[Rfam]
RNA: SAM riboswitch aptamer (S box leader)
Organism: Rasiella rasia
RNA sequence: UUGUUAUCAAGAAAGGUGGAGGGAUUAGACCCUUUGAAACCUUAGCAACCUGCCUACUAUGGGAAAGGUGCUACAUUCUACACCAGCAAAGCUGGGGAUAGAUAACGA
Numbered sequence: 001u002u003g004u005u006a007u008c009a010a011g012a013a014a015g016g017u018g019g020a021g022g023g024a025u026u027a028g029a030c031c032c033u034u035u036g037a038a039a040c041c042u043u044a045g046c047a048a049c050c051u052g053c054c055u056a057c058u059a060u061g062g063g064a065a066a067g068g069u070g071c072u073a074c075a076u077u078c079u080a081c082a083c084c085a086g087c088a089a090a091g092c093u094g095g096g097g098a099u100a101g102a103u104a105a106c107g108a
Stems, first nucleotide, its partner, number of pairs: 001108008013043005021032003026080004044072004049068002051064001053063002076100001081097001083095004